Rfam assigns this 103-nucleotide sequence from Staphylococcus saprophyticus to the family "Purine riboswitch aptamer". From the family's description: Riboswitches are metabolite binding domains within certain messenger RNAs that serve as precision sensors for their corresponding targets. NCBI's taxonomy places the organism under Bacteria, Bacillati, Bacillota, Staphylococcus, Staphylococcus saprophyticus.

RNA sequence: CAGUUAAUAAUUUAUCUAACUCAUAUAAUCUGAAGGAUACGGCUUUAGAAGUUUCUACCAUGUUGCCAUUAACAACAUGACUAUGAGUAACCAAUACAAUACA
Numbered sequence: 001c002a003g004u005u006a007a008u009a010a011u012u013u014a015u016c017u018a019a020c021u022c023a024u025a026u027a028a029u030c031u032g033a034a035g036g037a038u039a040c041g042g043c044u045u046u047a048g049a050a051g052u053u054u055c056u057a058c059c060a061u062g063u064u065g066c067c068a069u070u071a072a073c074a075a076c077a078u079g080a081c082u083a084u085g086a087g088u089a090a091c092c093a094a095u096a097c098a099a100u101a102c103a
Stems, first nucleotide, its partner, number of pairs: 019088007029049007059079007